[Rfam]
RNA sequence: CAACGGCAGCGUCAAGCGCCGUCAUCUGGUCAAGGCCUGUCCCCCGCCGAACCCAGAUGCAGGACAAAGGCCUAACCCCCCUCUCCGGGCCUUUGUCCAUCAUCAAAAACCGUCAUGGCCCGCCUCCGCCAUGGCGGUUUUUC
Number, nucleotide and partner (000 for none) at each position: 001c000002a000003a000004c000005g000006g000007c000008a000009g000010c000011g000012u000013c000014a000015a000016g000017c000018g000019c000020c000021g000022u000023c000024a000025u057026c056027u055028g054029g053030u051031c000032a000033a000034g048035g047036c046037c000038u000039g000040u000041c000042c000043c000044c000045c000046g036047c035048c034049g000050a000051a030052c000053c029054c028055a027056g026057a025058u000059g000060c000061a000062g098063g097064a096065c095066a094067a093068a092069g091070g090071c089072c088073u000074a000075a000076c000077c000078c000079c000080c000081c000082u000083c000084u000085c000086c000087g000088g072089g071090c070091c069092u068093u067094u066095g065096u064097c063098c062099a000100u000101c000102a000103u000104c000105a000106a000107a139108a000109a000110c137111c136112g135113u134114c133115a132116u131117g130118g129119c128120c000121c000122g000123c000124c000125u000126c000127c000128g119129c118130c117131a116132u115133g114134g113135c112136g111137g110138u000139u107140u000141u000142u000143c000

Notes
The family of this 143-nucleotide RNA from Rhizobium sp. Leaf371 is "Alphaproteobacterial sRNA ar7". The match comes from Rfam's covariance-model search (101 bits). Pairs were carried over by alignment from the consensus structure. By type it is a small RNA.